[Rfam]
RNA sequence: GGAUAACACUUUUUGCUAUCUCCGAUCAAUAACGUAAUGACACAUAGAAUAACUUUUUCAUGUAUCAUUAUGUUAUUGGUCGGGAAUAACAAAACAAUGUUAUCU
Numbered sequence: 001g002g003a004u005a006a007c008a009c010u011u012u013u014u015g016c017u018a019u020c021u022c023c024g025a026u027c028a029a030u031a032a033c034g035u036a037a038u039g040a041c042a043c044a045u046a047g048a049a050u051a052a053c054u055u056u057u058u059c060a061u062g063u064a065u066c067a068u069u070a071u072g073u074u075a076u077u078g079g080u081c082g083g084g085a086a087u088a089a090c091a092a093a094a095c096a097a098u099g100u101u102a103u104c105u
Stems, first nucleotide, its partner, number of pairs: 002104004011094005017088003021084020042063004047058003
Background: A member of the RNA family "MIR6274 microRNA precursor family" from Prunus persica, 105 nucleotides long. A search with the family's covariance model found it, with a score of 84 bits.